A member of the RNA family "Plastid-rps12 3UTR RNA", 103 nucleotides long.
The family's consensus secondary structure was predicted with LocARNA.
The literature on the family includes a 2023 paper in Plant Commun by Richter et al., "Retrograde signaling in plants: A critical review focusing on the GUN pathway and beyond".
Rfam 15.1 lists 1,710 matches to the family in 1,426 species.
The family's RNA type in Rfam is cis-regulatory element.

RNA sequence: GGUUUCUAGUGGUGUAAAUCCAAUCGUCUCCAUUUUCAAUUUAAGAUGAGAAAGAAUUUCCCAUUGGUAACAAAUGUUUAUCCAUUAAGCGGGGGGAAUCCCA
Numbered sequence: 001g002g003u004u005u006c007u008a009g010u011g012g013u014g015u016a017a018a019u020c021c022a023a024u025c026g027u028c029u030c031c032a033u034u035u036u037c038a039a040u041u042u043a044a045g046a047u048g049a050g051a052a053a054g055a056a057u058u059u060c061c062c063a064u065u066g067g068u069a070a071c072a073a074a075u076g077u078u079u080a081u082c083c084a085u086u087a088a089g090c091g092g093g094g095g096g097a098a099u100c101c102c103a
Base pairs, nucleotide, nucleotide: 010022011021012020059094060093061092062091063085064084066082067081068080069079070078